ASdes TB sRNA: a 68-nucleotide RNA sequence from Rhodococcus sp. AD45. For this family Rfam cites "Identification of small RNAs in Mycobacterium tuberculosis" (Arnvig and Young, Mol Microbiol, 2009). The base pairs follow the family's consensus structure, which is taken from published work.
RNA sequence: AGCUCGACGGGAUCGACGGCGCGCGUGACAACCAGGUAGUCGCGCAUCACGAUUCCGUGGCGAUUCUC
Numbered sequence: 001a002g003c004u005c006g007a008c009g010g011g012a013u014c015g016a017c018g019g020c021g022c023g024c025g026u027g028a029c030a031a032c033c034a035g036g037u038a039g040u041c042g043c044g045c046a047u048c049a050c051g052a053u054u055c056c057g058u059g060g061c062g063a064u065u066c067u068c
Stems, first nucleotide, its partner, number of pairs: 004063003008059002013028001016026003035056002038053001040052003044048001

Notes
It scores 78 bits against the family's covariance model. Rfam classes the family as a small RNA. The family has 26 seed sequences and 1,192 matches in Rfam 15.1.